Rfam assigns this 120-nucleotide RNA sequence from Mastigocoleus testarum to the family "Nitrogen stress-induced RNA 9". The literature on the family includes a 2016 paper in Front Microbiol by Brenes-Alvarez et al., "Identification of Conserved and Potentially Regulatory Small RNAs in Heterocystous Cyanobacteria". Rfam links the family to the GO term heterocyst differentiation. A search with the family's covariance model found it, with a score of 96 bits. NCBI's taxonomy places the organism under Bacteria, Bacillati, Nostocales, Mastigocoleus, Mastigocoleus testarum. It is annotated as a small RNA.
RNA sequence: AUUCACGUCUCUGACUGUGAGUAUGGCUGAUUAAAUCAGCCAUUGUUGCUGAUUGUUGGGAAGGUGUAGUGGCACCCCUUAGGGUGUUUUCUGCAUAACGGGCAUCCUCAAAAGAUGCCC
Numbered sequence: 001a002u003u004c005a006c007g008u009c010u011c012u013g014a015c016u017g018u019g020a021g022u023a024u025g026g027c028u029g030a031u032u033a034a035a036u037c038a039g040c041c042a043u044u045g046u047u048g049c050u051g052a053u054u055g056u057u058g059g060g061a062a063g064g065u066g067u068a069g070u071g072g073c074a075c076c077c078c079u080u081a082g083g084g085u086g087u088u089u090u091c092u093g094c095a096u097a098a099c100g101g102g103c104a105u106c107c108u109c110a111a112a113a114g115a116u117g118c119c120c
Base pairs, nucleotide, nucleotide: 006064008062010060012058013057014056015055017053018052020050021049022048023043024042025041026040027039028038029037065095066094067093068092069091071089072088073086074085075084076083100120101119102118103117104116105115106114108112